This 211-nucleotide sequence from Lachnoclostridium sp. An14 belongs to the Rfam family "Streptococcus sRNA SpF66". On this family, see Mann et al., PLoS Pathog 2012: "Control of virulence by small RNAs in Streptococcus pneumoniae". Pairs were carried over by alignment from the consensus structure, which was predicted with mfold.
RNA sequence: GUUACCGCCCCGAUACUGGCAACAGGAAGGGGGUGUACAUAUGGAGAUCAUCUUAUCCUUUAUCGUCGCUGUCGCGGCUGGUGUAGCCUGCCACUACAUCAUCAAAUGGCUGGAUGGCGACAAAUAACCGGUAACCAGCCUGUAGAUGUCUGACUACUUAAAACAGGAAAAAGCCCAGGAGCUCGCACCUCCUGGGCUUUUGCUGUGUAUC
Numbered sequence: 001g002u003u004a005c006c007g008c009c010c011c012g013a014u015a016c017u018g019g020c021a022a023c024a025g026g027a028a029g030g031g032g033g034u035g036u037a038c039a040u041a042u043g044g045a046g047a048u049c050a051u052c053u054u055a056u057c058c059u060u061u062a063u064c065g066u067c068g069c070u071g072u073c074g075c076g077g078c079u080g081g082u083g084u085a086g087c088c089u090g091c092c093a094c095u096a097c098a099u100c101a102u103c104a105a106a107u108g109g110c111u112g113g114a115u116g117g118c119g120a121c122a123a124a125u126a127a128c129c130g131g132u133a134a135c136c137a138g139c140c141u142g143u144a145g146a147u148g149u150c151u152g153a154c155u156a157c158u159u160a161a162a163a164c165a166g167g168a169a170a171a172a173g174c175c176c177a178g179g180a181g182c183u184c185g186c187a188c189c190u191c192c193u194g195g196g197c198u199u200u201u202g203c204u205g206u207g208u209a210u211c
Stems, first nucleotide, its partner, number of pairs: 005030002009026002012023001032158003035154002044054004068150001070148004077100001079098002083094002108140006115133002118130001160208001162206001164205002168201003172198010183187001